[Rfam]
RNA: mir-395 microRNA precursor family
RNA sequence: AUGUCCCUAGGAGUUCUAUGCAAGCACUUCACGAGGCAUUGUUUCAAGAGCUUUUGUGAAGUGUUUGGGGGAACUCUUGGUUUCUC
Numbered sequence: 001a002u003g004u005c006c007c008u009a010g011g012a013g014u015u016c017u018a019u020g021c022a023a024g025c026a027c028u029u030c031a032c033g034a035g036g037c038a039u040u041g042u043u044u045c046a047a048g049a050g051c052u053u054u055u056g057u058g059a060a061g062u063g064u065u066u067g068g069g070g071g072a073a074c075u076c077u078u079g080g081u082u083u084c085u086c
Base pairs, nucleotide, nucleotide: 007080008079009078011076012075013074014073015072016071017070019068022066023065024064025063026062027061028060029059030058031057032056033055034054035053036052